[Rfam]
RNA: SAM riboswitch aptamer (S box leader)
RNA sequence: UUCUUAUCAAGAGAGGCUGAGGGAAUGGCCCUAUGAAGUCUCAGCAACCUUCAAUGUCUAUUUUUCAUUGAAAAGGUGCUAAGUCCAUCAAGUUAUUAGGUAACUUGUGAGAUAAGAA
Number, nucleotide and partner (000 for none) at each position: 001u118002u117003c116004u115005u114006a113007u112008c111009a000010a000011g000012a000013g042014a041015g040016g039017c038018u000019g000020a000021g031022g030023g029024a000025a088026u087027g086028g085029c023030c022031c021032u000033a000034u000035g000036a000037a000038g017039u016040c015041u014042c013043a080044g079045c078046a077047a000048c076049c075050u072051u071052c070053a069054a068055u067056g066057u000058c000059u000060a000061u000062u000063u000064u000065u000066c056067a055068u054069u053070g052071a051072a050073a000074a000075g049076g048077u046078g045079c044080u043081a000082a000083g000084u110085c028086c027087a026088u025089c107090a106091a105092g104093u103094u102095a000096u000097u000098a000099g000100g000101u000102a094103a093104c092105u091106u090107g089108u000109g000110a084111g008112a007113u006114a005115a004116g003117a002118a001